[Rfam]
RNA sequence: GAAGUUCUUCGGGGCGGGGUGAAAUUCCCUACCGGCGGUAAAGUCCGCGAGCCAUUAGGGCAUGAACCGGUGUGAUUCCGGUACCGACAGUAAAGUCUGGAUGAGAGAAGAAGUGU
Numbered sequence: 001g002a003a004g005u006u007c008u009u010c011g012g013g014g015c016g017g018g019g020u021g022a023a024a025u026u027c028c029c030u031a032c033c034g035g036c037g038g039u040a041a042a043g044u045c046c047g048c049g050a051g052c053c054a055u056u057a058g059g060g061c062a063u064g065a066a067c068c069g070g071u072g073u074g075a076u077u078c079c080g081g082u083a084c085c086g087a088c089a090g091u092a093a094a095g096u097c098u099g100g101a102u103g104a105g106a107g108a109a110g111a112a113g114u115g116u
Base pairs, nucleotide, nucleotide: 003114005112006111007110008109009108010107017029018028019027031096032095033086034085035048036047037046038045043084044083053060066082067081068080069079070078088099089098090097
A member of the RNA family "FMN riboswitch aptamer (RFN element)" from Lachnospiraceae bacterium KH1T2, 116 nucleotides long. The match comes from Rfam's covariance-model search (117 bits). The base pairs follow the family's consensus structure, which is taken from published work. NCBI's taxonomy places the organism under Bacteria, Bacillota, Clostridia, Lachnospirales, Lachnospiraceae.